[Rfam]
RNA sequence: GCACAUCUGAAAAGCGGACCGCCCUCGCGGUCCCACCCAAGGUGCAAGCCGGGUACCCCGUGUACGGGGCCACUCCCGGCGAACCUCUCAGGUUCCGAUGACAGAUGGGGAGGA
Numbered sequence: 001g002c003a004c005a006u007c008u009g010a011a012a013a014g015c016g017g018a019c020c021g022c023c024c025u026c027g028c029g030g031u032c033c034c035a036c037c038c039a040a041g042g043u044g045c046a047a048g049c050c051g052g053g054u055a056c057c058c059c060g061u062g063u064a065c066g067g068g069g070c071c072a073c074u075c076c077c078g079g080c081g082a083a084c085c086u087c088u089c090a091g092g093u094u095c096c097g098a099u100g101a102c103a104g105a106u107g108g109g110g111a112g113g114a
Stems, first nucleotide, its partner, number of pairs: 002109001004107006016033004035093003039088001042087001044085001048080006
RNA: Glycine riboswitch aptamer